Rfam assigns this 114-nucleotide RNA sequence from Equus caballus to the family "Small nucleolar RNA SNORD89". For this family Rfam cites "RNomics: an experimental approach that identifies 201 candidates for novel, small, non-messenger RNAs in mouse" (Huttenhofer et al., EMBO J, 2001). The family's consensus secondary structure was predicted with RNAalifold. The sequence is in the family's curated seed alignment. The source organism's lineage runs through Eukaryota, Opisthokonta, Eumetazoa, Gnathostomata and Equus. From the family's description: snoRNA HBII-289 belongs to the family of C/D snoRNAs. It is the human orthologue of the mouse MBII-289 and has no identified RNA target. By type it is a C/D-box small nucleolar RNA.
RNA sequence: ACUGGGGAAUGAUGACAGUAAAAGGCCGAAUUGCAGUGUCCUCCAGCAGUUUGCUCUCUUGUGGGGUACACGAUGACAAAAUCUCCUGAAGCGAACCACUGGUCUGACCUCAGU
Numbered sequence: 001a002c003u004g005g006g007g008a009a010u011g012a013u014g015a016c017a018g019u020a021a022a023a024g025g026c027c028g029a030a031u032u033g034c035a036g037u038g039u040c041c042u043c044c045a046g047c048a049g050u051u052u053g054c055u056c057u058c059u060u061g062u063g064g065g066g067u068a069c070a071c072g073a074u075g076a077c078a079a080a081a082u083c084u085c086c087u088g089a090a091g092c093g094a095a096c097c098a099c100u101g102g103u104c105u106g107a108c109c110u111c112a113g114u
Base pairs, nucleotide, nucleotide: 001114002113003112004111005110006109007108014104015103016102025034026033035100036099037098038097039094040093041091044088045087046086049071050070052068053067054066055065056064072085073084075082